[Rfam]
RNA sequence: GGGCGGUGAUGACCAAAAUUUCUCGAUGCUGAGAGCUUCUCUAAAGAAGCGUAAUGCUGAGAUUUAUGGUUUGUGCGUGUCUGAGCCUU
Numbered sequence: 001g002g003g004c005g006g007u008g009a010u011g012a013c014c015a016a017a018a019u020u021u022c023u024c025g026a027u028g029c030u031g032a033g034a035g036c037u038u039c040u041c042u043a044a045a046g047a048a049g050c051g052u053a054a055u056g057c058u059g060a061g062a063u064u065u066a067u068g069g070u071u072u073g074u075g076c077g078u079g080u081c082u083g084a085g086c087c088u089u
Base pairs, nucleotide, nucleotide: 001088002087003086004085
RNA: small nucleolar RNA snoR126